RNA sequence: AACUACAUUGAGUGGUCAGAUUAUUAUGAUCUCUGAAAGCAUAAUAAUCUGGCCACUCAGUAUAUAU
Number, nucleotide and partner (000 for none) at each position: 001a000002a000003c000004u064005a063006c000007a061008u060009u059010g058011a057012g056013u055014g054015g053016u052017c051018a000019g049020a048021u047022u046023a045024u044025u043026a042027u041028g040029a000030u000031c000032u000033c000034u000035g000036a000037a000038a000039g000040c028041a027042u026043a025044a024045u023046a022047a021048u020049c019050u000051g017052g016053c015054c014055a013056c012057u011058c010059a009060g008061u007062a000063u005064a004065u000066a000067u000